The family of this 146-nucleotide sequence is "Group II catalytic intron D1-D4-7". The match comes from Rfam's covariance-model search (62 bits). Rfam links the family to the GO term Group II intron splicing. The literature on the family includes a 2001 paper in Trends Genet by Bonen and Vogel, "The ins and outs of group II introns".
RNA sequence: UAUUGUCUAUUUUGUCCAUAAACCUACCAAUAAGUGCGUUAUUAGUAAUGAUUAGGUGCUAAGCUAUUGGGACAAUGUAAGAUCUUAUCUAAACAUAAGAUAAGACUCUGCUAGGUUAGAUUACUAAGAAUAAUGAAAAUGAACAC
Numbered sequence: 001u002a003u004u005g006u007c008u009a010u011u012u013u014g015u016c017c018a019u020a021a022a023c024c025u026a027c028c029a030a031u032a033a034g035u036g037c038g039u040u041a042u043u044a045g046u047a048a049u050g051a052u053u054a055g056g057u058g059c060u061a062a063g064c065u066a067u068u069g070g071g072a073c074a075a076u077g078u079a080a081g082a083u084c085u086u087a088u089c090u091a092a093a094c095a096u097a098a099g100a101u102a103a104g105a106c107u108c109u110g111c112u113a114g115g116u117u118a119g120a121u122u123a124c125u126a127a128g129a130a131u132a133a134u135g136a137a138a139a140u141g142a143a144c145a146c
Base pairs, nucleotide, nucleotide: 002019003018005016007014028069029068030067031066032065033060034059035058036057037056039054041052042051043050044049084099085098086097087096088095101123102122103121108115109114125135126134